[Rfam]
RNA sequence: AACUUUGCACAGUGGCUGUAUUGUAACCAGUGAGGUUUAUCUGAGGUACAAUUAUUGCUGAUUGAAAAGUGUCCCACUACACCAAAAGAACUUGAAAUGUAGUUGGCAUUGUCAAUGUUUGAGAGUCUCUGUGGAGA
Numbered sequence: 001a002a003c004u005u006u007g008c009a010c011a012g013u014g015g016c017u018g019u020a021u022u023g024u025a026a027c028c029a030g031u032g033a034g035g036u037u038u039a040u041c042u043g044a045g046g047u048a049c050a051a052u053u054a055u056u057g058c059u060g061a062u063u064g065a066a067a068a069g070u071g072u073c074c075c076a077c078u079a080c081a082c083c084a085a086a087a088g089a090a091c092u093u094g095a096a097a098u099g100u101a102g103u104u105g106g107c108a109u110u111g112u113c114a115a116u117g118u119u120u121g122a123g124a125g126u127c128u129c130u131g132u133g134g135a136g137a
Stems, first nucleotide, its partner, number of pairs: 020052005026047003034042002083111001084109001089104004126137004
RNA: U4 spliceosomal RNA